Record summary: The record is a 96-nucleotide sequence from Handroanthus impetiginosus, which matches "Small nucleolar RNA Z266" in Rfam. The literature on the family includes a 2003 paper in Nucleic Acids Res by Chen et al., "The high diversity of snoRNAs in plants: identification and comparative study of 120 snoRNA genes from Oryza sativa". NCBI's taxonomy places the organism under Eukaryota, Embryophyta, Mesangiospermae, Tabebuia alliance, Handroanthus. Rfam 15.1 lists 719 matches to the family in 213 species.

[Rfam]
RNA sequence: AUCUGGCAAGAAUGAUGAGAAAAUUAGAUGUGCGAGGGAUGAAUAAUCUCUUUGAGCUCAAUCAACGAGGCUUAUUGAUAUUCUGGCUUGCCUUGU
Numbered sequence: 001a002u003c004u005g006g007c008a009a010g011a012a013u014g015a016u017g018a019g020a021a022a023a024u025u026a027g028a029u030g031u032g033c034g035a036g037g038g039a040u041g042a043a044u045a046a047u048c049u050c051u052u053u054g055a056g057c058u059c060a061a062u063c064a065a066c067g068a069g070g071c072u073u074a075u076u077g078a079u080a081u082u083c084u085g086g087c088u089u090g091c092c093u094u095g096u
Stems, first nucleotide, its partner, number of pairs: 001096002005092006